Rfam assigns this 116-nucleotide RNA from Arachis hypogaea to the family "U5 spliceosomal RNA". Lineage of the source: Eukaryota > Viridiplantae > Streptophytina > Mesangiospermae > Arachis. The family's consensus secondary structure is taken from published work. It scores 44 bits against the family's covariance model. About the family: U5 RNA is a component of both types of known spliceosome. The precise function of this molecule is unknown, though it is known that the 5' loop is required for splice site selection and p220 binding, and that both the 3' stem-loop and the Sm site are important for Sm protein binding and cap methylation. The family's RNA type in Rfam is spliceosomal small nuclear RNA.
RNA sequence: UGUCAUGCAUUGUGCACAGAAAUAACUGUUCUUUUGUCUUCUACUUAAGAAUAAGGUGUGCACAUUGCAUAAAGUGGUAUAGGCUAAUUUUUUAAUUUGAUAGAUCUUGGAUUGCU
Numbered sequence: 001u002g003u004c005a006u007g008c009a010u011u012g013u014g015c016a017c018a019g020a021a022a023u024a025a026c027u028g029u030u031c032u033u034u035u036g037u038c039u040u041c042u043a044c045u046u047a048a049g050a051a052u053a054a055g056g057u058g059u060g061c062a063c064a065u066u067g068c069a070u071a072a073a074g075u076g077g078u079a080u081a082g083g084c085u086a087a088u089u090u091u092u093u094a095a096u097u098u099g100a101u102a103g104a105u106c107u108u109g110g111a112u113u114g115c116u
Base pairs, nucleotide, nucleotide: 003077004076005075006074008067009066011064012063013062014061015060016059017058018057027053028052029051030050031049032048033047095116098114099113100112101111